[Rfam]
RNA sequence: AGGACAGGCCUUUCAGGCAUCCUCUCCCAAACUUUCAAGGGCCGCCCGGCAACGGAGCGGCCCCUUUUUUGGGUUGUU
Numbered sequence: 001a002g003g004a005c006a007g008g009c010c011u012u013u014c015a016g017g018c019a020u021c022c023u024c025u026c027c028c029a030a031a032c033u034u035u036c037a038a039g040g041g042c043c044g045c046c047c048g049g050c051a052a053c054g055g056a057g058c059g060g061c062c063c064c065u066u067u068u069u070u071g072g073g074u075u076g077u078u
Stems, first nucleotide, its partner, number of pairs: 008018004039063007047055001

About this RNA:
A member of the RNA family "Makes More Granules Regulator RNA (mmgR)" from Novosphingobium sp. AAP83, 78 nucleotides long. The match comes from Rfam's covariance-model search (45 bits). About the family: SuhB later renamed mmgR (makes more granules regulator) was a putative non-coding RNA found multiple times in the Agrobacterium tumefaciens genome and related alpha-proteobacteria. Other non-coding RNAs uncovered in the same analysis include: speF, ybhL, metA, and serC.Several studies inSinorhizobium meliloti showed that suhB element is indeed a non-coding RNA:firstly it was detected on Northern blot and called Sm8RNA, secondly in an RNAseq study referred to as SmelC689.The mutant phenotype's (strain lacking the small RNA) cytoplasm contains higher content of polyhydroxybutyrate (PBH)storage granules than wild type strain. The sRNA is required to limit the PBH intracellular accumulation when the nitrogen-fixing Sinorhizobium meliloti is under condition of surplus carbon in relation to nitrogen. Its family is annotated with response to nitrogen compound, DNA-templated transcription, termination and protein binding in the Gene Ontology.